[Rfam]
RNA sequence: AAUUUUAUAAAAGCGCCAGAACUUAAGUGAUUUUCUAAAGGAAAGUCCUACUAAGCGUAGGAGUAAGUUUGCCUAACUAAAUUGAAAUUUAUAGGCUCACUUAAGUUGACGAGGAUGGGGAGAAUCGAAUUCUUCGGCGGGUGCCCCACGGUAUCGCACUACCGUUAACGACUAGUAAAACUAUGAAGUGAUUUAUAGCACAACACUAGUCUGGUGUUAAAA
Numbered sequence: 001a002a003u004u005u006u007a008u009a010a011a012a013g014c015g016c017c018a019g020a021a022c023u024u025a026a027g028u029g030a031u032u033u034u035c036u037a038a039a040g041g042a043a044a045g046u047c048c049u050a051c052u053a054a055g056c057g058u059a060g061g062a063g064u065a066a067g068u069u070u071g072c073c074u075a076a077c078u079a080a081a082u083u084g085a086a087a088u089u090u091a092u093a094g095g096c097u098c099a100c101u102u103a104a105g106u107u108g109a110c111g112a113g114g115a116u117g118g119g120g121a122g123a124a125u126c127g128a129a130u131u132c133u134u135c136g137g138c139g140g141g142u143g144c145c146c147c148a149c150g151g152u153a154u155c156g157c158a159c160u161a162c163c164g165u166u167a168a169c170g171a172c173u174a175g176u177a178a179a180a181c182u183a184u185g186a187a188g189u190g191a192u193u194u195a196u197a198g199c200a201c202a203a204c205a206c207u208a209g210u211c212u213g214g215u216g217u218u219a220a221a222a
Stems, first nucleotide, its partner, number of pairs: 020107008029098001116148005125137004149164005170211005181198007
Rfam assigns this 222-nucleotide RNA sequence from Clostridium celatum to the family "glmS glucosamine-6-phosphate activated ribozyme aptamer". This entry contains a glucosamine-6-phosphate activated ribozyme that is found in the mRNA for GlmS. GlmS is an enzyme that uses fructose-6-phosphate and glutamine to generate glucosamine-6-phosphate. The family's RNA type in Rfam is riboswitch. The base pairs follow the family's consensus structure, which is taken from published work. The source organism's lineage runs through Bacteria, Bacillati, Bacillota, Clostridiaceae and Clostridium celatum. For this family Rfam cites "Control of gene expression by a natural metabolite-responsive ribozyme" (Winkler et al., Nature, 2004).